Rfam assigns this 129-nucleotide RNA sequence from Heterocephalus glaber to the family "Small nucleolar RNA SNORA44".
The base pairs follow the family's consensus structure, which was predicted with PFOLD.
Rfam describes the family as follows. ACA44 is a member of the H/ACA class of snoRNA that guide the sites of modification of uridines to pseudouridines.
Its family is annotated with RNA processing and nucleolus in the Gene Ontology.
The literature on the family includes a 2001 paper in EMBO J by Huttenhofer et al., "RNomics: an experimental approach that identifies 201 candidates for novel, small, non-messenger RNAs in mouse".
It scores 95 bits against the family's covariance model.

RNA sequence: CAGCAUGAGUCCAAGGCUGCAGUUCAUUGUGGCCAAGGGACCUCCUACUGCAUGUAAGAACAAUGUGGAGAGAUUUUGACAGCUUGGGUCAGAUCAUAUCUGCAGCUGCAAUGUGCCUUUCUAAUAAUG
Numbered sequence: 001c002a003g004c005a006u007g008a009g010u011c012c013a014a015g016g017c018u019g020c021a022g023u024u025c026a027u028u029g030u031g032g033c034c035a036a037g038g039g040a041c042c043u044c045c046u047a048c049u050g051c052a053u054g055u056a057a058g059a060a061c062a063a064u065g066u067g068g069a070g071a072g073a074u075u076u077u078g079a080c081a082g083c084u085u086g087g088g089u090c091a092g093a094u095c096a097u098a099u100c101u102g103c104a105g106c107u108g109c110a111a112u113g114u115g116c117c118u119u120u121c122u123a124a125u126a127a128u129g
Stems, first nucleotide, its partner, number of pairs: 011038002015034007067122006082109002085102004